[Rfam]
RNA sequence: UUUAAGGAUUAUAUCGAGGAAUCAAAUGAUGAGGUAACGCUCGGAAGGGUUCUCUCUUAGACGAUUAGCACUUGAUUUAGUAAGAAUGAUAGUGUUAUUAGCUCGGUGAAAAGGCGUGAGAAUUUGCCGUAACAGUGUAGUUUAGCUGACGAAAGCCUACCCGAUGGGGUGGUGUAAAUCAUAAUGCUUGGGUUUGAAUG
Numbered sequence: 001u002u003u004a005a006g007g008a009u010u011a012u013a014u015c016g017a018g019g020a021a022u023c024a025a026a027u028g029a030u031g032a033g034g035u036a037a038c039g040c041u042c043g044g045a046a047g048g049g050u051u052c053u054c055u056c057u058u059a060g061a062c063g064a065u066u067a068g069c070a071c072u073u074g075a076u077u078u079a080g081u082a083a084g085a086a087u088g089a090u091a092g093u094g095u096u097a098u099u100a101g102c103u104c105g106g107u108g109a110a111a112a113g114g115c116g117u118g119a120g121a122a123u124u125u126g127c128c129g130u131a132a133c134a135g136u137g138u139a140g141u142u143u144a145g146c147u148g149a150c151g152a153a154a155g156c157c158u159a160c161c162c163g164a165u166g167g168g169g170u171g172g173u174g175u176a177a178a179u180c181a182u183a184a185u186g187c188u189u190g191g192g193u194u195u196g197a198a199u200g
Base pairs, nucleotide, nucleotide: 018053019052020051021050022049023048033041034040054192055191056190062105063104064103066097067096068095069094070093071092072091075090076089077088113188114187115186116185117184122179123178124177125176126175127174128151129150130149134147135146155173156172157171159170160169161168162167
RNA: Group II catalytic intron D1-D4-5
Organism: Oceanobacillus bengalensis